[Rfam]
RNA: Glycine riboswitch aptamer
Nucleotides: 098
Base pairs, nucleotide, nucleotide: 006093007092008091009090010089012087013086020043021042022041023040024039025038026037045078046077047076048074049073052072053071054070058066059065
Number, partner (000 for none) and nucleotide at each position: 001000c002000u003000c004000g005000a006093c007092c008091c009090c010089g011000u012087g013086g014000g015000a016000g017000a018000g019000u020043g021042c022041g023040g024039c025038c026037g027000c028000g029000c030000g031000c032000a033000g034000c035000g036000c037026c038025g039024g040023c041022c042021g043020c044000c045078g046077c047076c048074g049073a050000a051000g052072g053071c054070g055000c056000a057000a058066c059065c060000c061000g062000c063000c064000c065059g066058g067000a068000a069000u070054c071053g072052c073049u074048c075000a076047g077046g078045c079000a080000c081000c082000c083000g084000g085000a086013c087012c088000u089010c090009g091008g092007g093006g094000g095000a096000c097000g098000g